[Rfam]
RNA sequence: CACAACUGAUCGGGAGAACCGGGUUCGCCGGUGCCGAAGGAGCAACCGCCCCGGAAACUCUCAGGCCAAAGGGACCGAUCAGACAGG
Numbered sequence: 001c002a003c004a005a006c007u008g009a010u011c012g013g014g015a016g017a018a019c020c021g022g023g024u025u026c027g028c029c030g031g032u033g034c035c036g037a038a039g040g041a042g043c044a045a046c047c048g049c050c051c052c053g054g055a056a057a058c059u060c061u062c063a064g065g066c067c068a069a070a071g072g073g074a075c076c077g078a079u080c081a082g083a084c085a086g087g
Stems, first nucleotide, its partner, number of pairs: 006082008019031004033066003036062002040060003046054002
Dot-bracket structure: .....((((((((.....((((.....)))).(((((..(((...((.....))...))))).)))........)))))))).....

A member of the RNA family "Glycine riboswitch aptamer" from Thalassovita litoralis, 87 nucleotides long. It scores 62 bits against the family's covariance model. Lineage of the source: Bacteria > Pseudomonadota > Alphaproteobacteria > Rhodobacterales > Thalassovita. Pairs were carried over by alignment from the consensus structure.